[Rfam]
RNA: Guanidine-II riboswitch aptamer (mini-ykkC)
RNA sequence: CGGAGGACGACCUCCGGCGGGAGAUUCAGACCGGGGACGGCCCCG
Numbered sequence: 001c002g003g004a005g006g007a008c009g010a011c012c013u014c015c016g017g018c019g020g021g022a023g024a025u026u027c028a029g030a031c032c033g034g035g036g037a038c039g040g041c042c043c044c045g
Stems, first nucleotide, its partner, number of pairs: 001016006032045005
Dot-bracket structure: ((((((....))))))...............(((((....)))))